[Rfam]
RNA sequence: GCCGAGCCUGGUAACCCGAGCUUGUAACCUAAGUGAGGGCUGUAAGGUGAUAGAAUGCGAGUUUGGCUUUGCUGAAAUGGAUGUUGGGUGGUUUAACUUUGGCUUGCCCGCUCCAAGUUGUUAGUUGAGCCGAGGGGCUUGAGUGUAAACUCUGAGACUCGUGGUUCCUAAAGUGGAGGGUACUGCGUGAGGUUAGUUUCUCAGAGCAGCGAAAACCUCCCUCUCCUGACAGUGGAAGAUAACAAGCUUUGAUCCACUCCUAUCCAACAUGGCUCAGCGAGCUAACCAUCAUCCUAAACUUUA
Numbered sequence: 001g002c003c004g005a006g007c008c009u010g011g012u013a014a015c016c017c018g019a020g021c022u023u024g025u026a027a028c029c030u031a032a033g034u035g036a037g038g039g040c041u042g043u044a045a046g047g048u049g050a051u052a053g054a055a056u057g058c059g060a061g062u063u064u065g066g067c068u069u070u071g072c073u074g075a076a077a078u079g080g081a082u083g084u085u086g087g088g089u090g091g092u093u094u095a096a097c098u099u100u101g102g103c104u105u106g107c108c109c110g111c112u113c114c115a116a117g118u119u120g121u122u123a124g125u126u127g128a129g130c131c132g133a134g135g136g137g138c139u140u141g142a143g144u145g146u147a148a149a150c151u152c153u154g155a156g157a158c159u160c161g162u163g164g165u166u167c168c169u170a171a172a173g174u175g176g177a178g179g180g181u182a183c184u185g186c187g188u189g190a191g192g193u194u195a196g197u198u199u200c201u202c203a204g205a206g207c208a209g210c211g212a213a214a215a216c217c218u219c220c221c222u223c224u225c226c227u228g229a230c231a232g233u234g235g236a237a238g239a240u241a242a243c244a245a246g247c248u249u250u251g252a253u254c255c256a257c258u259c260c261u262a263u264c265c266a267a268c269a270u271g272g273c274u275c276a277g278c279g280a281g282c283u284a285a286c287c288a289u290c291a292u293c294c295u296a297a298a299c300u301u302u303a
Base pairs, nucleotide, nucleotide: 001040002039003038004023005022006021007020009018010017011016028037030035043303044302045301046300047299048298051296052295053294055292056291057290063285064284065283066282067281069280070279071278072277073276074275075274078271079265080264081263082262083261086258087257089256090255091254093252094251101248102247103246104245105244106243108238112236113235114234115233117230118229119228120227123224124223127167128166129165130164131163132162134160135159136158138156139155140154141153142151143150144149168173175220176219177218178217179216184213186211187210188209193204194203
Rfam assigns this 303-nucleotide RNA from Gossypium mustelinum to the family "Plant signal recognition particle RNA". The family's RNA type in Rfam is non-coding RNA gene.